[Rfam]
RNA sequence: AAGUAGUUAUAGUCGCAACGUAUCCUCAACGGGCUUUGUUGCGGCUCUUCUUAAGAAAAAGUACUAGGAGUGAAUAGUGGCCCGUAUAGCAGGCAUUAACAUUCCUGAU
Numbered sequence: 001a002a003g004u005a006g007u008u009a010u011a012g013u014c015g016c017a018a019c020g021u022a023u024c025c026u027c028a029a030c031g032g033g034c035u036u037u038g039u040u041g042c043g044g045c046u047c048u049u050c051u052u053a054a055g056a057a058a059a060a061g062u063a064c065u066a067g068g069a070g071u072g073a074a075u076a077g078u079g080g081c082c083c084g085u086a087u088a089g090c091a092g093g094c095a096u097u098a099a100c101a102u103u104c105c106u107g108a109u
Stems, first nucleotide, its partner, number of pairs: 004053003009048001011046003024093003030084004039107001
A member of the RNA family "Alpha operon ribosome binding site" from Aliivibrio fischeri, 109 nucleotides long.
Its family is annotated with ribosome binding in the Gene Ontology.
For this family Rfam cites "Translational repression of the Escherichia coli alpha operon mRNA: importance of an mRNA conformational switch and a ternary entrapment complex" (Schlax et al., J Biol Chem, 2001).
Rfam classes the family as a cis-regulatory element.
From the family's description: The bacterial alpha operon ribosome binding site is surrounded by this complex pseudoknotted structure. Translation of the mRNA produces 4 ribosomal protein products, one of which (S4) acts as a translational repressor by binding to the nested pseudoknot region. The mechanism of repression is thought to involve a conformational switch in the pseudoknot region and ribosome entrapment.
NCBI's taxonomy places the organism under Bacteria, Pseudomonadati, Vibrionales, Vibrionaceae, Aliivibrio fischeri.